A member of the RNA family "Bacillus-plasmid RNA" from Bacteroides sp. CAG:754, 55 nucleotides long. Lineage of the source: Bacteria > Bacteroidota > Bacteroidia > Bacteroidaceae > Bacteroides. A search with the family's covariance model found it, with a score of 35 bits. Rfam classes the family as a small RNA.
Nucleotides: 055
Stems, first nucleotide, its partner, number of pairs: 001046009
Number, partner (000 for none) and nucleotide at each position: 001046g002045u003044u004043g005042u006041c007040a008039a009038u010000g011000g012000g013000a014000g015000u016000g017000g018000a019000u020000g021000a022000a023000g024000u025000g026000u027000g028000g029000g030000c031000g032000g033000a034000u035000a036000a037000g038009a039008u040007u041006g042005a043004u044003a045002a046001c047000u048000u049000u050000a051000u052000c053000a054000u055000a